[Rfam]
The record is a 77-nucleotide RNA sequence from Crocodylus porosus, which matches "Mammalian CPEB3 ribozyme" in Rfam.
RNA sequence: GGUUGCAAGUUUGAGGCCAUAGCAGAAGGGCUCAUGGCAUAUCCCUGUCAGAUUCCAAUGAAUUUGCAAAUUCUGCU
Dot-bracket structure: ............[.[[....((((((((.(.......).)..]]]...(((((((....)))))))....)))))))

A reference for the family is Salehi-Ashtiani et al. (2006), "A genomewide search for ribozymes reveals an HDV-like sequence in the human CPEB3 gene", Science. NCBI's taxonomy places the organism under Eukaryota, Vertebrata, Amniota, Archosauria, Crocodylus. The family's consensus secondary structure is taken from published work.